[Rfam]
RNA sequence: AUUCGCUUGCGUAACUGACGAGACAGGCGGAGCACCGCCGUGGAGCGCGAGCCUUGUUUUGCCGCUCGUCUGGGCACCCUCC
Numbered sequence: 001a002u003u004c005g006c007u008u009g010c011g012u013a014a015c016u017g018a019c020g021a022g023a024c025a026g027g028c029g030g031a032g033c034a035c036c037g038c039c040g041u042g043g044a045g046c047g048c049g050a051g052c053c054u055u056g057u058u059u060u061g062c063c064g065c066u067c068g069u070c071u072g073g074g075c076a077c078c079c080u081c082c
Stems, first nucleotide, its partner, number of pairs: 005052008015042001017070005027038004060076004
Rfam assigns this 82-nucleotide sequence from Altererythrobacter epoxidivorans to the family "ZMP/ZTP riboswitch aptamer (pfl RNA motif)". The organism belongs to Altererythrobacter, within Bacteria.